[Rfam]
Record summary:
Rfam assigns this 175-nucleotide RNA from Strigamia maritima to the family "U2 spliceosomal RNA". Rfam 15.1 lists 71,512 matches to the family in 2,642 species. Pairs were carried over by alignment from the consensus structure, which is taken from published work.

RNA sequence: CCAACUUCACCUGAUGACUGUUCUUAUCAGCUUAAUAUCUGAUACGGUCCUCAUUGAGGGCCCAGAAUAUUAAACUGAUUUUUGGAACCAGAUGGGGUGCUCGGAGCUUGCUUCACCCCUGUCAAGGGUGGGCCUGGUAUUGCAAUACUGUACCUCUAGGAUCGGCCCUCUCCUU
Numbered sequence: 001c002c003a004a005c006u007u008c009a010c011c012u013g014a015u016g017a018c019u020g021u022u023c024u025u026a027u028c029a030g031c032u033u034a035a036u037a038u039c040u041g042a043u044a045c046g047g048u049c050c051u052c053a054u055u056g057a058g059g060g061c062c063c064a065g066a067a068u069a070u071u072a073a074a075c076u077g078a079u080u081u082u083u084g085g086a087a088c089c090a091g092a093u094g095g096g097g098u099g100c101u102c103g104g105a106g107c108u109u110g111c112u113u114c115a116c117c118c119c120u121g122u123c124a125a126g127g128g129u130g131g132g133c134c135u136g137g138u139a140u141u142g143c144a145a146u147a148c149u150g151u152a153c154c155u156c157u158a159g160g161a162u163c164g165g166c167c168c169u170c171u172c173c174u175u
Stems, first nucleotide, its partner, number of pairs: 025044006046062007091123007103114004126168004131163001133160005